[Rfam]
RNA sequence: AGAGUUGUCGUCUGUGAUGCAUUUGUGUGUCUGAAUGAAUCGUGAUGUAAUUCAUCACUUCGUCACUACCACUGAGAUGACAACCGA
Numbered sequence: 001a002g003a004g005u006u007g008u009c010g011u012c013u014g015u016g017a018u019g020c021a022u023u024u025g026u027g028u029g030u031c032u033g034a035a036u037g038a039a040u041c042g043u044g045a046u047g048u049a050a051u052u053c054a055u056c057a058c059u060u061c062g063u064c065a066c067u068a069c070c071a072c073u074g075a076g077a078u079g080a081c082a083a084c085c086g087a
Stems, first nucleotide, its partner, number of pairs: 004084009
Dot-bracket structure: ...(((((((((...............................................................)))))))))...

Small nucleolar RNA SNORD70: an 87-nucleotide RNA sequence from Scleropages formosus. Pairs were carried over by alignment from the consensus structure. On this family, see Huttenhofer et al., EMBO J 2001: "RNomics: an experimental approach that identifies 201 candidates for novel, small, non-messenger RNAs in mouse". Its family is annotated with RNA processing and nucleolus in the Gene Ontology.